[Rfam]
RNA sequence: GGUCUUGUAGUGUAGCGGUUAGCACUCUGGAUUCUGAUCUCCCAACAUCGCCUUCCAGCAACCUGAGUUCGAUUCUCAGCAAGACCU
Numbered sequence: 001g002g003u004c005u006u007g008u009a010g011u012g013u014a015g016c017g018g019u020u021a022g023c024a025c026u027c028u029g030g031a032u033u034c035u036g037a038u039c040u041c042c043c044a045a046c047a048u049c050g051c052c053u054u055c056c057a058g059c060a061a062c063c064u065g066a067g068u069u070c071g072a073u074u075c076u077c078a079g080c081a082a083g084a085c086c087u
Base pairs, nucleotide, nucleotide: 001086002085003084004083005082006081007080010025011024012023013022027058028057029056030055031054063079064078065077066076067075

Description:
A member of the RNA family "tRNA" from Chaetothyriales sp. CBS 135597, 87 nucleotides long. NCBI's taxonomy places the organism under Eukaryota, saccharomyceta, Eurotiomycetes, Chaetothyriomycetidae, Chaetothyriales. The base pairs follow the family's consensus structure, which is taken from published work. Rfam classes the family as a transfer RNA.